The record is a 107-nucleotide RNA from Streptococcus downei, which matches "PreQ1-II (pre queuosine) riboswitch aptamer" in Rfam. Rfam links the family to the GO term queuosine biosynthetic process. Lineage of the source: Bacteria > Bacillati > Bacillota > Bacilli > Streptococcus downei. A search with the family's covariance model found it, with a score of 81 bits. preQ1-II riboswitch was first reported for Weinberg et al. 2007 it was recognised in Streptococcaceae and Lactococcus families in 5' untranslated regions of genes of a membrane protein classified as COG4708 or DUF988. Meyers et al. 2008 confirm that preQ1-II recognise the queuosine (Q) precursor pre-queuosine 1 (preQ1). Q is a hyper modified nucleoside present in some anticodons in tRNAs (Try, Asn, Asp and His).
RNA sequence: UGUGCUAUACUGAUAAAGCUGAUUUCCAGCCCUUGGUGCUUAGCUCUUUUCACCAAGCAUACUAUAAGCAGAAGUAUUUCUUUUUUUCUGCUAAAGGAGAAUAUUUA
Numbered sequence: 001u002g003u004g005c006u007a008u009a010c011u012g013a014u015a016a017a018g019c020u021g022a023u024u025u026c027c028a029g030c031c032c033u034u035g036g037u038g039c040u041u042a043g044c045u046c047u048u049u050u051c052a053c054c055a056a057g058c059a060u061a062c063u064a065u066a067a068g069c070a071g072a073a074g075u076a077u078u079u080c081u082u083u084u085u086u087u088c089u090g091c092u093a094a095a096g097g098a099g100a101a102u103a104u105u106u107a
Base pairs, nucleotide, nucleotide: 018030019029020028021027032057033056034055035054036053037052038051044099045098046097047096048095049094067092068091069090070089071088072087073086074085